mraW RNA: a 107-nucleotide RNA sequence from Corynebacterium frankenforstense. The family has 45 seed sequences and 851 matches in Rfam 15.1. The family's RNA type in Rfam is cis-regulatory element. The source organism's lineage runs through Bacteria, Actinomycetota, Corynebacteriaceae, Corynebacterium and Corynebacterium frankenforstense. A search with the family's covariance model found it, with a score of 53 bits.
RNA sequence: CCGCGGAGCGCGUGCACGGGCUCCGUCCGGGGUCGACCGGCUCUGGUGUACUUCCCCGACAUCAGAACGGUCCCCCGGGCGGGGCCCUGGACGCACCCCGCGAGCCC
Numbered sequence: 001c002c003g004c005g006g007a008g009c010g011c012g013u014g015c016a017c018g019g020g021c022u023c024c025g026u027c028c029g030g031g032g033u034c035g036a037c038c039g040g041c042u043c044u045g046g047u048g049u050a051c052u053u054c055c056c057c058g059a060c061a062u063c064a065g066a067a068c069g070g071u072c073c074c075c076c077g078g079g080c081g082g083g084g085c086c087c088u089g090g091a092c093g094c095a096c097c098c099c100g101c102g103a104g105c106c107c
Stems, first nucleotide, its partner, number of pairs: 010094004015089002018087002021084012035072005042066008